[Rfam]
RNA sequence: CCCUCCCACAAAGGCGUGUCUGUGGUUCCCUGUCUUCAGACACGUAAGAAUUGGAGGCAGAGAAUUAUGGACUUGGAGAAAUCUGGGGCCUGCUUGCUUCCUGCAGGCUUAAGAUCAACCAUCCCACGUAG
Dot-bracket structure: .(((((........(((((((..((...)).......)))))))........)))))...........(((.(..................((((((.....))))))............)))).......